[Rfam]
RNA sequence: CCUGUUGAGCUUGACUCUAGUUUGACAUUGUGAAAAGACAUAGGAGGUGUAGAAUAGGUGGGAGCUUCGGCGCCGGUGAAAUACCACUACUCCUAUUGUUUUUUUACUUAUUCAAUGAAGCGGGGCUGGAUUUAUGUCCAACUUCUGGUUUUAAGGUCCUUCGCGGGCCGACCCGGGUUGAAGACAUUGUCAGGUGGGGAGUUUGGCUGGGGCGGCACAUCUGUUAAACCAUAACGCAGGUGUCCUAAGGGGGGCUCAUGGAGAACAGAAAUCUCCAGUAGAACAAAAGGGUAAAAGUCCCCUUGAUUUUGAUUUUCAGUGUGAAUACAAACCAUGAAAGUGUGGCCUAUCGAUCCUUUAGUCCCUCGAAAUUUGAGGCUAGAGGUGCCAGAAAAGUUACCACAGGGAUGAACAUAUUAUGUUUUAAACGUCCCAGGCGGCACAAUGACAAGU
Numbered sequence: 001c002c003u004g005u006u007g008a009g010c011u012u013g014a015c016u017c018u019a020g021u022u023u024g025a026c027a028u029u030g031u032g033a034a035a036a037g038a039c040a041u042a043g044g045a046g047g048u049g050u051a052g053a054a055u056a057g058g059u060g061g062g063a064g065c066u067u068c069g070g071c072g073c074c075g076g077u078g079a080a081a082u083a084c085c086a087c088u089a090c091u092c093c094u095a096u097u098g099u100u101u102u103u104u105u106a107c108u109u110a111u112u113c114a115a116u117g118a119a120g121c122g123g124g125g126c127u128g129g130a131u132u133u134a135u136g137u138c139c140a141a142c143u144u145c146u147g148g149u150u151u152u153a154a155g156g157u158c159c160u161u162c163g164c165g166g167g168c169c170g171a172c173c174c175g176g177g178u179u180g181a182a183g184a185c186a187u188u189g190u191c192a193g194g195u196g197g198g199g200a201g202u203u204u205g206g207c208u209g210g211g212g213c214g215g216c217a218c219a220u221c222u223g224u225u226a227a228a229c230c231a232u233a234a235c236g237c238a239g240g241u242g243u244c245c246u247a248a249g250g251g252g253g254g255c256u257c258a259u260g261g262a263g264a265a266c267a268g269a270a271a272u273c274u275c276c277a278g279u280a281g282a283a284c285a286a287a288a289g290g291g292u293a294a295a296a297g298u299c300c301c302c303u304u305g306a307u308u309u310u311g312a313u314u315u316u317c318a319g320u321g322u323g324a325a326u327a328c329a330a331a332c333c334a335u336g337a338a339a340g341u342g343u344g345g346c347c348u349a350u351c352g353a354u355c356c357u358u359u360a361g362u363c364c365c366u367c368g369a370a371a372u373u374u375g376a377g378g379c380u381a382g383a384g385g386u387g388c389c390a391g392a393a394a395a396g397u398u399a400c401c402a403c404a405g406g407g408a409u410g411a412a413c414a415u416a417u418u419a420u421g422u423u424u425u426a427a428a429c430g431u432c433c434c435a436g437g438c439g440g441c442a443c444a445a446u447g448a449c450a451a452g453u
Stems, first nucleotide, its partner, number of pairs: 001406004006402002008398005014202004021194007030107010040096007057088005064071002111182005121175004129138002155169005205218001206216003219241006244345002250302006256282002259277006283292002307331003312326004333342003356384006364378004